[Rfam]
RNA sequence: ACGGAUCAAUGGCAAACUUGCCGAAAGGCAGGGACGCAAAGCUACGGGCCUAAGGAAGAGGUAUCGUCUAUGGCCGCCGGGUUGCCGAA
Numbered sequence: 001a002c003g004g005a006u007c008a009a010u011g012g013c014a015a016a017c018u019u020g021c022c023g024a025a026a027g028g029c030a031g032g033g034a035c036g037c038a039a040a041g042c043u044a045c046g047g048g049c050c051u052a053a054g055g056a057a058g059a060g061g062u063a064u065c066g067u068c069u070a071u072g073g074c075c076g077c078c079g080g081g082u083u084g085c086c087g088a089a
Base pairs, nucleotide, nucleotide: 012037013036017032018031019030020029021028022027040083041082042081043080045079046078047077048074049073050072055068056067058065
Dot-bracket structure: ...........((...((((((....))))))...))..((((.((((((....((.(......).))...)))..)))))))......